[Rfam]
RNA sequence: GUUGCAAAUUCAAGGCCACAGCAGAAACAUUUGUAGUGCAGCCCUGUCAGAUGCCAGUGAAUCUGCAGAUUCUGCU
Numbered sequence: 001g002u003u004g005c006a007a008a009u010u011c012a013a014g015g016c017c018a019c020a021g022c023a024g025a026a027a028c029a030u031u032u033g034u035a036g037u038g039c040a041g042c043c044c045u046g047u048c049a050g051a052u053g054c055c056a057g058u059g060a061a062u063c064u065g066c067a068g069a070u071u072c073u074g075c076u
Stems, first nucleotide, its partner, number of pairs: 014043003020076007028038002048065005054059001
Dot-bracket structure: .............[[[...(((((((.((.......))..]]]....(((((.(....).)))))....)))))))
RNA: Mammalian CPEB3 ribozyme
Organism: Alligator mississippiensis